[Rfam]
RNA sequence: GACUAUGCCUGACCCCUCUCCUCCUCCCUGGGGUUCGAGCAUAAGCGGCGGCACCUCUCCUCCUCCCUGGUGCCGCCGCACUCC
Number, nucleotide and partner (000 for none) at each position: 001g000002a000003c000004u000005a000006u000007g000008c037009c000010u000011g035012a034013c033014c032015c031016c030017u000018c000019u000020c000021c000022u000023c000024c000025u000026c000027c000028c000029u000030g016031g015032g014033g013034u012035u011036c000037g008038a000039g000040c000041a000042u000043a000044a000045g000046c078047g077048g076049c075050g074051g073052c072053a071054c070055c069056u000057c000058u000059c000060c000061u000062c000063c000064u000065c000066c000067c000068u000069g055070g054071u053072g052073c051074c050075g049076c048077c047078g046079c000080a000081c000082u000083c000084c000